[Rfam]
RNA sequence: GGCUGAUCCAAUGGUAGUGGACUAUCAGAACUUAUUAACAUUAGUGUCACUAAAGUUGGUAUACAACCCCCCACUGCUAAAUUUAACUGGCUUUAA
Dot-bracket structure: (((((.(..((...((((((............(((.((.................)).))).........)))))...)...)).).)))))....
Numbered sequence: 001g002g003c004u005g006a007u008c009c010a011a012u013g014g015u016a017g018u019g020g021a022c023u024a025u026c027a028g029a030a031c032u033u034a035u036u037a038a039c040a041u042u043a044g045u046g047u048c049a050c051u052a053a054a055g056u057u058g059g060u061a062u063a064c065a066a067c068c069c070c071c072c073a074c075u076g077c078u079a080a081a082u083u084u085a086a087c088u089g090g091c092u093u094u095a096a
Stems, first nucleotide, its partner, number of pairs: 001092005007086001010084002015079001016075005033061003037057002